A member of the RNA family "Small nucleolar RNA Z122" from Miscanthus lutarioriparius, 94 nucleotides long. The literature on the family includes a 2003 paper in Nucleic Acids Res by Chen et al., "The high diversity of snoRNAs in plants: identification and comparative study of 120 snoRNA genes from Oryza sativa".
RNA sequence: UUUGGGAACUGACGAACAACUUAUUUCAGAAAUCAUUUUAUGGAUCUAUGUAUAUAUGAUAUGAUGAAAAUUUGCACGUCCGUCUGAUCCCAUA
Number, nucleotide and partner (000 for none) at each position: 001u094002u000003u092004g091005g090006g089007a088008a000009c000010u000011g000012a000013c000014g000015a000016a000017c000018a000019a000020c000021u000022u000023a000024u000025u000026u000027c000028a000029g000030a000031a000032a000033u000034c000035a000036u000037u000038u000039u000040a000041u000042g000043g000044a000045u000046c000047u000048a000049u000050g000051u000052a000053u000054a000055u000056a000057u000058g000059a000060u000061a000062u000063g000064a000065u000066g000067a000068a000069a000070a000071u000072u000073u000074g000075c000076a000077c000078g000079u000080c000081c000082g000083u000084c000085u000086g000087a000088u007089c006090c005091c004092a003093u000094a001

The match comes from Rfam's covariance-model search (63 bits). Pairs were carried over by alignment from the consensus structure, which was predicted with PFOLD.